A member of the RNA family "MIR2670 microRNA precursor family" from Medicago truncatula, 208 nucleotides long. The source organism's lineage runs through Eukaryota, Euphyllophyta, Fabales, Fabaceae and Medicago. Rfam links the family to the GO terms RISC complex and miRNA-mediated post-transcriptional gene silencing.
[Rfam]
RNA sequence: UCGGGGUAAAAUAGUGAGUAGCCGACCUGGGGAAGUGAUCAACCCUUGGGAUAAGUUUAAAUCUGCUUUUCUUUACUCCAUAAACUUUUUACCAACUUUUUACCGUUGGUAAAAAGAUUUUUCUUGGGGUAUAAAAAACCAGAUUUAAAUUUAGCCCAAGGAUUAAUGAUGUAUUUUUACAUGAAGGCUGCUCAUUAUUUUACCCCCG
Numbered sequence: 001u002c003g004g005g006g007u008a009a010a011a012u013a014g015u016g017a018g019u020a021g022c023c024g025a026c027c028u029g030g031g032g033a034a035g036u037g038a039u040c041a042a043c044c045c046u047u048g049g050g051a052u053a054a055g056u057u058u059a060a061a062u063c064u065g066c067u068u069u070u071c072u073u074u075a076c077u078c079c080a081u082a083a084a085c086u087u088u089u090u091a092c093c094a095a096c097u098u099u100u101u102a103c104c105g106u107u108g109g110u111a112a113a114a115a116g117a118u119u120u121u122u123c124u125u126g127g128g129g130u131a132u133a134a135a136a137a138a139c140c141a142g143a144u145u146u147a148a149a150u151u152u153a154g155c156c157c158a159a160g161g162a163u164u165a166a167u168g169a170u171g172u173a174u175u176u177u178u179a180c181a182u183g184a185a186g187g188c189u190g191c192u193c194a195u196u197a198u199u200u201u202a203c204c205c206c207c208g
Base pairs, nucleotide, nucleotide: 003206004205005204006203007202008201009200010199011198012197013196014195015194016193017192018191019190020189021188022187023186026183028181029180031178033177034176035175038170039169040168041167042163044161046159047158048157049156050155052153053152054151055150057148058147059146060145061144062143063142064141065140067138068137069136072135073134074131075130076129077128078127079126080125085116086115087114088113089112090111091110092109093108094107095106096105